[Rfam]
RNA: tRNA
RNA sequence: GCCCGGGUAGCUCAGUUGGUAGAGCAGCGGAUUGAAAAUCCGCGUGUCACUGGUUCGAUUCCGGUUCCGGGCA
Dot-bracket structure: (((((((..((((........)))).(((((.......))))).....(((((.......)))))))))))).